[Rfam]
RNA sequence: CACAGAGUAGAUGAUUCGCGUCAAGUGUGUGUGAAUGGGAUGUCGUCACACAACGAAGCAAUUUGCGCGGUGAAUCGUUGCAUCCGCUGUU
Number, nucleotide and partner (000 for none) at each position: 001c000002a090003c089004a088005g087006a000007g000008u000009a000010g079011a078012u077013g076014a075015u074016u073017c072018g071019c069020g068021u067022c000023a000024a000025g054026u053027g000028u052029g051030u050031g049032u048033g047034a046035a000036u000037g000038g085039g084040a083041u082042g081043u000044c000045g000046u034047c033048a032049c031050a030051c029052a028053a026054c025055g000056a000057a000058g066059c065060a064061a000062u000063u000064u060065g059066c058067g021068c020069g019070g000071u018072g017073a016074a015075u014076c013077g012078u011079u010080g000081c042082a041083u040084c039085c038086g000087c005088u004089g003090u002091u000
Annotation:
This 91-nucleotide RNA from Streptococcus infantarius belongs to the Rfam family "THF (Tetrahydrofolate) riboswitch aptamer". Taxonomically the source falls in Streptococcus infantarius subsp. infantarius (Bacteria, Bacillota, Streptococcaceae, Streptococcus). The literature on the family includes a 2014 paper in Chem Biol by Trausch and Batey, "A disconnect between high-affinity binding and efficient regulation by antifolates and purines in the tetrahydrofolate riboswitch". Rfam 15.1 lists 747 matches to the family in 747 species. About the family: Tetrahydrofolate (THF) riboswitch was first reported for Ames et al. as an RNA motif in 5' untranslated (5'-UTR)regions of folate transport and biosynthesis genes in Firmicutes genomes.